Nucleotides: 060
Base pairs, nucleotide, nucleotide: 001017002016003015004014009027010026011025012024035047036046037045
Number, partner (000 for none) and nucleotide at each position: 001017u002016g003015u004014c005000a006000g007000c008000u009027g010026a011025u012024u013000a014004g015003a016002c017001g018000u019000a020000a021000a022000a023000c024012a025011g026010u027009c028000g029000g030000c031000a032000c033000a034000a035047g036046u037045g038000g039000u040000g041000c042000a043000a044000c045037c046036a047035u048000g049000u050000a051000a052000a053000a054000a055000a056000g057000c058000g059000u060000a
Shown here is a 60-nucleotide RNA sequence, a member of the family "GP20-b RNA". By type it is a cis-regulatory element. The sequence is in the family's curated seed alignment.